Rfam assigns this 47-nucleotide sequence from Lentisphaera araneosa to the family "Acido-Lenti-1 RNA". Lineage of the source: Bacteria > Pseudomonadati > Lentisphaerota > Lentisphaeria > Lentisphaera araneosa. The family's consensus secondary structure is taken from published work. It is annotated as a small RNA.
RNA sequence: CCCAAGGCUUACGCCAUUGGGCUGUGUUAUAUCAUGCCUUCGGCAUU
Numbered sequence: 001c002c003c004a005a006g007g008c009u010u011a012c013g014c015c016a017u018u019g020g021g022c023u024g025u026g027u028u029a030u031a032u033c034a035u036g037c038c039u040u041c042g043g044c045a046u047u
Base pairs, nucleotide, nucleotide: 001021002020003019004018005017006015007014008013034046035045036044037043038042